Rfam assigns this 442-nucleotide part of an RNA from Cafeteria roenbergensis to the family "Eukaryotic large subunit ribosomal RNA". NCBI's taxonomy places the organism under Eukaryota, Stramenopiles, Bigyra, Bicosoecida, Cafeteria. The base pairs follow the family's consensus structure, which is taken from published work.
RNA sequence: GGUAGUAGCAAAUAUUCAAAUGAGAACUUUGAAGGCCGAAGUGGAGAAAGGUUUGGUAGGAACAGCAGUUGACUGCCAGUGAGCCGCUCCUAAGAGAUAGGGUAAUGCCGUUCGGAAGUGGGCGUCUCGCGCGCCCCGCCUAUCGAAAGGGAACCAGGUUUAUAUUCCUGGGCCUGGGUGGAGACAGGUGGCAACACACACGAGCUGGGAGACGUCGGAGGGAGCCCCGGGGAGAGUUCUCUUUUCUUGUUAACAGCUUCUUCCCCUGGAAUCGGUUCGCCCGGAGAUAGGGGUGUAUAGCUGGAAUAGCUGUCACGCUUAGUGACGGUCCGGAACGCUCUCGACGGCCCUUGAAAACCCCAGCGAGGUACCUAGUGUCGGUCUUACCCCAGGGCGUACUCAUAACCGCAUCAGGUCUCCAAGGUUAGCAGCCUCUGGUCGA
Numbered sequence: 001g002g003u004a005g006u007a008g009c010a011a012a013u014a015u016u017c018a019a020a021u022g023a024g025a026a027c028u029u030u031g032a033a034g035g036c037c038g039a040a041g042u043g044g045a046g047a048a049a050g051g052u053u054u055g056g057u058a059g060g061a062a063c064a065g066c067a068g069u070u071g072a073c074u075g076c077c078a079g080u081g082a083g084c085c086g087c088u089c090c091u092a093a094g095a096g097a098u099a100g101g102g103u104a105a106u107g108c109c110g111u112u113c114g115g116a117a118g119u120g121g122g123c124g125u126c127u128c129g130c131g132c133g134c135c136c137c138g139c140c141u142a143u144c145g146a147a148a149g150g151g152a153a154c155c156a157g158g159u160u161u162a163u164a165u166u167c168c169u170g171g172g173c174c175u176g177g178g179u180g181g182a183g184a185c186a187g188g189u190g191g192c193a194a195c196a197c198a199c200a201c202g203a204g205c206u207g208g209g210a211g212a213c214g215u216c217g218g219a220g221g222g223a224g225c226c227c228c229g230g231g232g233a234g235a236g237u238u239c240u241c242u243u244u245u246c247u248u249g250u251u252a253a254c255a256g257c258u259u260c261u262u263c264c265c266c267u268g269g270a271a272u273c274g275g276u277u278c279g280c281c282c283g284g285a286g287a288u289a290g291g292g293g294u295g296u297a298u299a300g301c302u303g304g305a306a307u308a309g310c311u312g313u314c315a316c317g318c319u320u321a322g323u324g325a326c327g328g329u330c331c332g333g334a335a336c337g338c339u340c341u342c343g344a345c346g347g348c349c350c351u352u353g354a355a356a357a358c359c360c361c362a363g364c365g366a367g368g369u370a371c372c373u374a375g376u377g378u379c380g381g382u383c384u385u386a387c388c389c390c391a392g393g394g395c396g397u398a399c400u401c402a403u404a405a406c407c408g409c410a411u412c413a414g415g416u417c418u419c420c421a422a423g424g425u426u427a428g429c430a431g432c433c434u435c436u437g438g439u440c441g442a
Stems, first nucleotide, its partner, number of pairs: 015033006034440004043420004049400002054078006063071002085396003089150002094144002096112003100109002120137003154171005174392004180387001182385002184382002188197003205363005214348004220342006227333003230250001232248004254303005263293006272284004310328007406415002422434004
Rfam 15.1 lists 107,465 matches to the family in 2,616 species.